About this RNA:
This 46-nucleotide sequence from Cyclonatronum proteinivorum belongs to the Rfam family "Acido-Lenti-1 RNA". Pairs were carried over by alignment from the consensus structure, which is taken from published work.
[Rfam]
RNA sequence: CCCGGGGUUGGCACCCCGGGCUGUGAUAUACCGCUCUUACAGGGCU
Numbered sequence: 001c002c003c004g005g006g007g008u009u010g011g012c013a014c015c016c017c018g019g020g021c022u023g024u025g026a027u028a029u030a031c032c033g034c035u036c037u038u039a040c041a042g043g044g045c046u
Base pairs, nucleotide, nucleotide: 001020002019003018004017005016006015007014008013033045034044035043036042037041
The match comes from Rfam's covariance-model search (45 bits). Lineage of the source: Bacteria > Pseudomonadati > Balneolia > Balneolales > Cyclonatronum.